Rfam assigns this 106-nucleotide RNA from Aegilops tauschii to the family "MIR398 microRNA precursor family". On this family, see Jones-Rhoades and Bartel, Mol Cell 2004: "Computational identification of plant microRNAs and their targets, including a stress-induced miRNA". The match comes from Rfam's covariance-model search (62 bits).
RNA sequence: GAAAUUCCUGUGGGGUCGAGCUGGGAACACAUGAGAUAUGAACCGCUUGAUUGACGAGCGUCUCUUAUCAACUCAUGUGUUCUCAGGUCGCCCCCGCUGGAGCCUC
Numbered sequence: 001g002a003a004a005u006u007c008c009u010g011u012g013g014g015g016u017c018g019a020g021c022u023g024g025g026a027a028c029a030c031a032u033g034a035g036a037u038a039u040g041a042a043c044c045g046c047u048u049g050a051u052u053g054a055c056g057a058g059c060g061u062c063u064c065u066u067a068u069c070a071a072c073u074c075a076u077g078u079g080u081u082c083u084c085a086g087g088u089c090g091c092c093c094c095c096g097c098u099g100g101a102g103c104c105u106c
Stems, first nucleotide, its partner, number of pairs: 007100002011096004017090003023084010
NCBI's taxonomy places the organism under Eukaryota, Spermatophyta, Liliopsida, Triticodae, Aegilops tauschii.